RNA sequence: GCCACGGUCCGGGCCCCUCUGGCGCCUCCCUGCGAUGCGCGAUGUCGGACCUCCACC
Numbered sequence: 001g002c003c004a005c006g007g008u009c010c011g012g013g014c015c016c017c018u019c020u021g022g023c024g025c026c027u028c029c030c031u032g033c034g035a036u037g038c039g040c041g042a043u044g045u046c047g048g049a050c051c052u053c054c055a056c057c
Base pairs, nucleotide, nucleotide: 006051007050008049009048010047011046012045022040023039024038025037027035028034

The family of this 57-nucleotide sequence from Falsiroseomonas bella is "terC RNA". It scores 53 bits against the family's covariance model. The family's RNA type in Rfam is cis-regulatory element. The source organism's lineage runs through Bacteria, Alphaproteobacteria, Acetobacterales, Roseomonadaceae and Falsiroseomonas. The family's consensus secondary structure is taken from published work.